[Rfam]
RNA sequence: UUCUUAUCAAGAGAGGUGGAGGGAAUUGGCCCUUUGAAACCCAGCAACCAGCAGAUUAUACUGCCCGGUGCUAAAUCCAACAGGUGUGUCCUGAAAGAUAAGUA
Numbered sequence: 001u002u003c004u005u006a007u008c009a010a011g012a013g014a015g016g017u018g019g020a021g022g023g024a025a026u027u028g029g030c031c032c033u034u035u036g037a038a039a040c041c042c043a044g045c046a047a048c049c050a051g052c053a054g055a056u057u058a059u060a061c062u063g064c065c066c067g068g069u070g071c072u073a074a075a076u077c078c079a080a081c082a083g084g085u086g087u088g089u090c091c092u093g094a095a096a097g098a099u100a101a102g103u104a
Stems, first nucleotide, its partner, number of pairs: 001104001003102006013042001015041003021032003026080004043072004048068002051064004076096001081093004
Dot-bracket structure: (.((((((....(.(((...(((..[[[[)))......))))((((.((.((((......))))..))))))...(]]]]((((.....))))..))))))).)

A member of the RNA family "SAM riboswitch aptamer (S box leader)" from Halanaerobium hydrogeniformans, 104 nucleotides long. The source organism's lineage runs through Bacteria, Bacillati, Bacillota, Halanaerobiales and Halanaerobium.